[Rfam]
RNA sequence: UUACGUUGAGCCACAAGGCUGCAGUAAAUGCUUACCAGGCAACGGGGGUAAGUU
Numbered sequence: 001u002u003a004c005g006u007u008g009a010g011c012c013a014c015a016a017g018g019c020u021g022c023a024g025u026a027a028a029u030g031c032u033u034a035c036c037a038g039g040c041a042a043c044g045g046g047g048g049u050a051a052g053u054u
Stems, first nucleotide, its partner, number of pairs: 004044005010019003030053005035047002
The family of this 54-nucleotide RNA sequence is "Glutamine-II riboswitch aptamer".
A reference for the family is Huang et al. (2019), "Structure and ligand binding of the glutamine-II riboswitch", Nucleic Acids Res.
Rfam links the family to the GO term glutamine binding.